[Rfam]
RNA sequence: CGAACCCAAAACAAUGAAAGCCCUACCUCUCUUUCAUCCUUACGGCUCCUAGACCGUGCCAGUGUGGAUCAGGUUAUUAACCUGCUA
Numbered sequence: 001c002g003a004a005c006c007c008a009a010a011a012c013a014a015u016g017a018a019a020g021c022c023c024u025a026c027c028u029c030u031c032u033u034u035c036a037u038c039c040u041u042a043c044g045g046c047u048c049c050u051a052g053a054c055c056g057u058g059c060c061a062g063u064g065u066g067g068a069u070c071a072g073g074u075u076a077u078u079a080a081c082c083u084g085c086u087a
Base pairs, nucleotide, nucleotide: 034067035066036065039062040061041058042057043056044055045054047052
Rfam assigns this 87-nucleotide RNA sequence from Bacillus oleivorans to the family "BsrC". NCBI's taxonomy places the organism under Bacteria, Bacillati, Bacilli, Caryophanales, Bacillus. The 301 nucleotide sequence from Kouji Nakamura has been trimmed to a highly conserved ~85 nucleotide long core to form this family. By type it is a small RNA.